[Rfam]
RNA sequence: CAGGUACAAGAGAUAGUUACUUGACUAGCUCAAGAGGAAAGUCCGAGCUGCUGUAAGACAGUGUUCCAUUUAACGAAUGGCCGUAGUAAUGCGAGGGAAAGUGCAACAGAGAUUAGACUUCUGCGUUUAUUCGUAGUAAAGGUGAAAAGGUGCGUGUAAGAGACCACCAGUUUCUAUAGCAAUAUAGAGAGCUUGUAAACCCAACAUGGCAGCAAGAAACAGAUGGUUAGCGUCUUACAAUGCUUUUGUUUCGCUGGAUGCACUAUGUAAAUUGUGCAGUAGAUUAAUGCUAUAAAAACAAAACUCGGCUUAUCUUGUACCUUCUAC
Numbered sequence: 001c002a003g004g005u006a007c008a009a010g011a012g013a014u015a016g017u018u019a020c021u022u023g024a025c026u027a028g029c030u031c032a033a034g035a036g037g038a039a040a041g042u043c044c045g046a047g048c049u050g051c052u053g054u055a056a057g058a059c060a061g062u063g064u065u066c067c068a069u070u071u072a073a074c075g076a077a078u079g080g081c082c083g084u085a086g087u088a089a090u091g092c093g094a095g096g097g098a099a100a101g102u103g104c105a106a107c108a109g110a111g112a113u114u115a116g117a118c119u120u121c122u123g124c125g126u127u128u129a130u131u132c133g134u135a136g137u138a139a140a141g142g143u144g145a146a147a148a149g150g151u152g153c154g155u156g157u158a159a160g161a162g163a164c165c166a167c168c169a170g171u172u173u174c175u176a177u178a179g180c181a182a183u184a185u186a187g188a189g190a191g192c193u194u195g196u197a198a199a200c201c202c203a204a205c206a207u208g209g210c211a212g213c214a215a216g217a218a219a220c221a222g223a224u225g226g227u228u229a230g231c232g233u234c235u236u237a238c239a240a241u242g243c244u245u246u247u248g249u250u251u252c253g254c255u256g257g258a259u260g261c262a263c264u265a266u267g268u269a270a271a272u273u274g275u276g277c278a279g280u281a282g283a284u285u286a287a288u289g290c291u292a293u294a295a296a297a298a299c300a301a302a303a304c305u306c307g308g309c310u311u312a313u314c315u316u317g318u319a320c321c322u323u324c325u326a327c
Stems, first nucleotide, its partner, number of pairs: 002322010013293005020034005039311003043308005048212004061207005066080005081095001082093004096202002101200002103196003118141002121136005149168004154164002170192001171190008216252004226243001259278005265272002